Shown here is a 112-nucleotide RNA from Spirodela intermedia, a member of the family "Small nucleolar RNA Z103".
[Rfam]
RNA sequence: GUGGUAGUGAUGAUCCUUUCCCCAACUGAUCGACGCUGAUUAGUCUGUGCGAAACAGUCAUUUCAUCUUCUCCUCGGGGGACUUGAGAAUGCAAGCCAGGACUCUGAACCCC
Numbered sequence: 001g002u003g004g005u006a007g008u009g010a011u012g013a014u015c016c017u018u019u020c021c022c023c024a025a026c027u028g029a030u031c032g033a034c035g036c037u038g039a040u041u042a043g044u045c046u047g048u049g050c051g052a053a054a055c056a057g058u059c060a061u062u063u064c065a066u067c068u069u070c071u072c073c074u075c076g077g078g079g080g081a082c083u084u085g086a087g088a089a090u091g092c093a094a095g096c097c098a099g100g101a102c103u104c105u106g107a108a109c110c111c112c
Stems, first nucleotide, its partner, number of pairs: 001112001003110003
About this RNA:
A search with the family's covariance model found it, with a score of 64 bits. NCBI's taxonomy places the organism under Eukaryota, Tracheophyta, Liliopsida, Araceae, Spirodela. Gene Ontology terms of the family: nucleolus and RNA processing. Pairs were carried over by alignment from the consensus structure, which was predicted with PFOLD.